[Rfam]
RNA sequence: CGGGCCGGCAAGACGGUCGCGUCACCCGGAGACGGGUGCCGAGGAACGUCCGGGCUCCGCAGGGCAGGACGGUGGGUAACACCCACCCGGGGCGACCCGCGAGACAGUGCCACAGAAAGCAAACCGCCGCAGGCGACUGCGGUAAGGGUGAAACGGUGGGGUAAGAGCCCACCAGCGGCCGCGGUGACGCGGUCGGCUCGGCAAACCUCGUCCGGAGCAAGGUCAGACAGGGAACCAUGGGGCGGCCCGCCCCGUUCCCGGGUAGACCGCUGGAGCGGCACGGCAACGUGUCGCCGAGAGAGAUGGCCGUCCAGCCGUCGCACCCCCGGGUGCACGGGGGACAGAACCCGGCGUAUCAGCCGGCCCGUUCG
Numbered sequence: 001c002g003g004g005c006c007g008g009c010a011a012g013a014c015g016g017u018c019g020c021g022u023c024a025c026c027c028g029g030a031g032a033c034g035g036g037u038g039c040c041g042a043g044g045a046a047c048g049u050c051c052g053g054g055c056u057c058c059g060c061a062g063g064g065c066a067g068g069a070c071g072g073u074g075g076g077u078a079a080c081a082c083c084c085a086c087c088c089g090g091g092g093c094g095a096c097c098c099g100c101g102a103g104a105c106a107g108u109g110c111c112a113c114a115g116a117a118a119g120c121a122a123a124c125c126g127c128c129g130c131a132g133g134c135g136a137c138u139g140c141g142g143u144a145a146g147g148g149u150g151a152a153a154c155g156g157u158g159g160g161g162u163a164a165g166a167g168c169c170c171a172c173c174a175g176c177g178g179c180c181g182c183g184g185u186g187a188c189g190c191g192g193u194c195g196g197c198u199c200g201g202c203a204a205a206c207c208u209c210g211u212c213c214g215g216a217g218c219a220a221g222g223u224c225a226g227a228c229a230g231g232g233a234a235c236c237a238u239g240g241g242g243c244g245g246c247c248c249g250c251c252c253c254g255u256u257c258c259c260g261g262g263u264a265g266a267c268c269g270c271u272g273g274a275g276c277g278g279c280a281c282g283g284c285a286a287c288g289u290g291u292c293g294c295c296g297a298g299a300g301a302g303a304u305g306g307c308c309g310u311c312c313a314g315c316c317g318u319c320g321c322a323c324c325c326c327c328g329g330g331u332g333c334a335c336g337g338g339g340g341a342c343a344g345a346a347c348c349c350g351g352c353g354u355a356u357c358a359g360c361c362g363g364c365c366c367g368u369u370c371g
Stems, first nucleotide, its partner, number of pairs: 001367009011356001012311007020041002023038006046354003050351005055217004062248004067213005072086005087101001088099004102208002107206002109202003124147002126143007155173006175197001176195008221268004230259006239253005275294008
RNA: Bacterial RNase P class A
Organism: Agromyces archimandritae